This 62-nucleotide RNA from Ananas comosus belongs to the Rfam family "Plastid-ndhJ 3UTR RNA". A search with the family's covariance model found it, with a score of 51 bits. About the family: Plastid ndhJ is a non-coding RNA (ncRNA) present in plastids. It was identified as a short stem-loop motif in the 3 prime untranslate region (3UTR) of ndhJ gene. The family has 50 seed sequences and 869 matches in Rfam 15.1. Lineage of the source: Eukaryota > Magnoliopsida > commelinids > Bromelioideae > Ananas.

[Rfam]
RNA sequence: CCAUGAACUUUGUACCGCGCACAUCACUUAGAUGGACCGGACCCCGGAAAGUAAUGUAACGU
Numbered sequence: 001c002c003a004u005g006a007a008c009u010u011u012g013u014a015c016c017g018c019g020c021a022c023a024u025c026a027c028u029u030a031g032a033u034g035g036a037c038c039g040g041a042c043c044c045c046g047g048a049a050a051g052u053a054a055u056g057u058a059a060c061g062u
Base pairs, nucleotide, nucleotide: 019042022034023033024032025031